[Rfam]
RNA sequence: GGGGUCGAUUAGGAUUCGACGGGUUACACAAACUCUAAGGUGCAUGUCGUGGGGCGGUUGGCCACGUAAAAAGCCGCAAAAAAAUAGUCGCAAACGACGAAACUUACGCACUAGCAGCUUAAUAACCUGCUCAGAGCACUUCUGCCCUAGCUUCCGCUUGUAAGACGGGGAAUUACAGAAGUUCAAACCCAAACAAGAUAGUGUGGAUGCUCCCGCCUGAGAGUUGAAGCAUGAAAUCUAAUUCAGGAUAGCCUAACUGUGGCGUGUUUGUUCGCAGCAAUUGGGUGAAAUUAAAGACAAACUAAGCAUGUAGUACCGAGGACGGCGGUAUUCCGGACGGGGGUUCAAAUCCCCCCGGCUCCACCA
Numbered sequence: 001g002g003g004g005u006c007g008a009u010u011a012g013g014a015u016u017c018g019a020c021g022g023g024u025u026a027c028a029c030a031a032a033c034u035c036u037a038a039g040g041u042g043c044a045u046g047u048c049g050u051g052g053g054g055c056g057g058u059u060g061g062c063c064a065c066g067u068a069a070a071a072a073g074c075c076g077c078a079a080a081a082a083a084a085u086a087g088u089c090g091c092a093a094a095c096g097a098c099g100a101a102a103c104u105u106a107c108g109c110a111c112u113a114g115c116a117g118c119u120u121a122a123u124a125a126c127c128u129g130c131u132c133a134g135a136g137c138a139c140u141u142c143u144g145c146c147c148u149a150g151c152u153u154c155c156g157c158u159u160g161u162a163a164g165a166c167g168g169g170g171a172a173u174u175a176c177a178g179a180a181g182u183u184c185a186a187a188c189c190c191a192a193a194c195a196a197g198a199u200a201g202u203g204u205g206g207a208u209g210c211u212c213c214c215g216c217c218u219g220a221g222a223g224u225u226g227a228a229g230c231a232u233g234a235a236a237u238c239u240a241a242u243u244c245a246g247g248a249u250a251g252c253c254u255a256a257c258u259g260u261g262g263c264g265u266g267u268u269u270g271u272u273c274g275c276a277g278c279a280a281u282u283g284g285g286u287g288a289a290a291u292u293a294a295a296g297a298c299a300a301a302c303u304a305a306g307c308a309u310g311u312a313g314u315a316c317c318g319a320g321g322a323c324g325g326c327g328g329u330a331u332u333c334c335g336g337a338c339g340g341g342g343g344u345u346c347a348a349a350u351c352c353c354c355c356c357g358g359c360u361c362c363a364c365c366a
Base pairs, nucleotide, nucleotide: 001362002361003360004359005358006357007356020335021334022333023332025330026329027328034322035321036320039317040316041315043310044309045308046307047306048066049065050064051063052062054077055076056075057074058073059072111134112133114130115129116128117127138182139181140180141179142178143177145170146169147168148167151164152163153162157197158196159195160194161193202231203230204229215249217247218246251286252285253284254283255282256281258279259278260277262275263274264273266302267301268300269299270298271297272296339355340354341353342352343351
A member of the RNA family "transfer-messenger RNA" from Catenovulum maritimum, 366 nucleotides long. From the family's description: Bacterial tmRNA, also known as 10Sa RNA or SsrA, is named for its dual tRNA and mRNA-like properties. Its role is to liberate the mRNA from a stalled ribosome. To accomplish this part of the tmRNA is used as a reading frame that ends in a translation stop signal. The broken mRNA is replaced in the ribosome by the tmRNA and translation of the tmRNA leads to addition of a proteolysis tag to the incomplete protein enabling recognition by a protease. By type it is a non-coding RNA gene. The organism belongs to Catenovulum, within Bacteria.